[Rfam]
The family of this 67-nucleotide RNA from Bombyx mori is "mir-2774 microRNA precursor family". Gene Ontology terms of the family: miRNA-mediated post-transcriptional gene silencing and RISC complex. It scores 71 bits against the family's covariance model.
RNA sequence: ACAACAAUGGGACCGUCGAUCUACCGAGCAAUAUCACCCGCUCGGUGAAAAAUCUGCCCUUUGUCGU
Number, nucleotide and partner (000 for none) at each position: 001a000002c000003a000004a064005c063006a062007a000008u000009g000010g058011g057012a000013c000014c000015g053016u052017c000018g000019a000020u049021c000022u047023a046024c045025c044026g043027a042028g041029c040030a000031a000032u000033a000034u000035c000036a000037c000038c000039c000040g029041c028042u027043c026044g025045g024046u023047g022048a000049a020050a000051a000052a016053u015054c000055u000056g000057c011058c010059c000060u000061u000062u006063g005064u004065c000066g000067u000